Rfam assigns this 155-nucleotide RNA from Glycine max to the family "MIR4371 microRNA precursor family".

[Rfam]
RNA sequence: CUGUUAAGUGAUGACAUGGCAGACGAACCACGUUAUUAUGUUUAAUCACUGACACAUCAGUAUCACGUCAUUGAGGGUAAUGAUAUGAUAAUGAAGUGUCCAUAACACGAUGUGAUGAUGUGACAUUAUAUAUGCUACGUCAUCGCUGAAUGGAA
Numbered sequence: 001c002u003g004u005u006a007a008g009u010g011a012u013g014a015c016a017u018g019g020c021a022g023a024c025g026a027a028c029c030a031c032g033u034u035a036u037u038a039u040g041u042u043u044a045a046u047c048a049c050u051g052a053c054a055c056a057u058c059a060g061u062a063u064c065a066c067g068u069c070a071u072u073g074a075g076g077g078u079a080a081u082g083a084u085a086u087g088a089u090a091a092u093g094a095a096g097u098g099u100c101c102a103u104a105a106c107a108c109g110a111u112g113u114g115a116u117g118a119u120g121u122g123a124c125a126u127u128a129u130a131u132a133u134g135c136u137a138c139g140u141c142a143u144c145g146c147u148g149a150a151u152g153g154a155a
Base pairs, nucleotide, nucleotide: 001153002152003151004150005149007147008146009145010144011143012142013141014140015139017137018136019135020134021133023131025129027127029122030121031120032119033118034117035116036115037114038113039112040111041110042109046105048103051100052099053098054097055096067084068083069082070081071080
Its family is annotated with RISC complex and miRNA-mediated post-transcriptional gene silencing in the Gene Ontology. The organism belongs to Glycine subgen. Soja, within Eukaryota. Pairs were carried over by alignment from the consensus structure, which was predicted with RNAalifold.